Description
This 436-nucleotide part of an RNA from Toxocara canis belongs to the Rfam family "Eukaryotic large subunit ribosomal RNA". The organism belongs to Toxocara, within Eukaryota. Pairs were carried over by alignment from the consensus structure, which is taken from published work. The family is grouped with related families in Rfam's "LSU clan". Rfam 15.1 lists 107,465 matches to the family in 2,616 species.

RNA sequence: GACUGAAGUGGAGAAGGGUUCCACGUGAACAGCAGUUGAAUGUGGGUCAGUCGGCCCUAAGAAACUGGCUAAUGCCAUGUGUUAUCGAGAGGCGGAGUUCAAAUCCAUCUCGUCUAUCGAAAGGGAAACGGGUUAAUAUUCCCGUACCUGGACACGGAGAUAAGCGCUCAUUGCGAGCGUUUAGCGCGGCAACGCAAACGAACUCGGUAACGCUGAAUAGAGCCCGAGCUAGAGUUCUCUUUUCUAGUUAAGGAACGAAUUCCCUGGAAUCGGUUCAGCCGGCGAUAGGGAUGUUGUUUCCGUAAAGCGCCACGGUUCCUGUGGUGUCUCGUGCGCUCUAUUCGGCCCUUGAAAAACCGAGGGAGGCUAUUUGAAUUUCGUGCCAGGCCGUACCGAUAUCCGCAGCAGGUCUCCAAGGUGAACAGCCUCUAGUCGA
Numbered sequence: 001g002a003c004u005g006a007a008g009u010g011g012a013g014a015a016g017g018g019u020u021c022c023a024c025g026u027g028a029a030c031a032g033c034a035g036u037u038g039a040a041u042g043u044g045g046g047u048c049a050g051u052c053g054g055c056c057c058u059a060a061g062a063a064a065c066u067g068g069c070u071a072a073u074g075c076c077a078u079g080u081g082u083u084a085u086c087g088a089g090a091g092g093c094g095g096a097g098u099u100c101a102a103a104u105c106c107a108u109c110u111c112g113u114c115u116a117u118c119g120a121a122a123g124g125g126a127a128a129c130g131g132g133u134u135a136a137u138a139u140u141c142c143c144g145u146a147c148c149u150g151g152a153c154a155c156g157g158a159g160a161u162a163a164g165c166g167c168u169c170a171u172u173g174c175g176a177g178c179g180u181u182u183a184g185c186g187c188g189g190c191a192a193c194g195c196a197a198a199c200g201a202a203c204u205c206g207g208u209a210a211c212g213c214u215g216a217a218u219a220g221a222g223c224c225c226g227a228g229c230u231a232g233a234g235u236u237c238u239c240u241u242u243u244c245u246a247g248u249u250a251a252g253g254a255a256c257g258a259a260u261u262c263c264c265u266g267g268a269a270u271c272g273g274u275u276c277a278g279c280c281g282g283c284g285a286u287a288g289g290g291a292u293g294u295u296g297u298u299u300c301c302g303u304a305a306a307g308c309g310c311c312a313c314g315g316u317u318c319c320u321g322u323g324g325u326g327u328c329u330c331g332u333g334c335g336c337u338c339u340a341u342u343c344g345g346c347c348c349u350u351g352a353a354a355a356a357c358c359g360a361g362g363g364a365g366g367c368u369a370u371u372u373g374a375a376u377u378u379c380g381u382g383c384c385a386g387g388c389c390g391u392a393c394c395g396a397u398a399u400c401c402g403c404a405g406c407a408g409g410u411c412u413c414c415a416a417g418g419u420g421a422a423c424a425g426c427c428u429c430u431a432g433u434c435g436a
Stems, first nucleotide, its partner, number of pairs: 001434004010414004016394002021045006030038002052390003056124002061118002064078001067076003087111003128145005148386004203361006212346004217341007225331003228248006252301004261291006270282004308326007400409002416428004